[Rfam]
RNA: c-di-GMP-I riboswitch aptamer
Organism: Acidaminococcus fermentans
RNA sequence: AAAACCUUUUGGCAAACCUGGAGAAAUCCAGCGACGCAAAGCUAACAGGGCCUGUAAAAUGGCAGCCAGCUGCACAG
Numbered sequence: 001a002a003a004a005c006c007u008u009u010u011g012g013c014a015a016a017c018c019u020g021g022a023g024a025a026a027u028c029c030a031g032c033g034a035c036g037c038a039a040a041g042c043u044a045a046c047a048g049g050g051c052c053u054g055u056a057a058a059a060u061g062g063c064a065g066c067c068a069g070c071u072g073c074a075c076a077g
Stems, first nucleotide, its partner, number of pairs: 012037002018031005040071004048067002050063003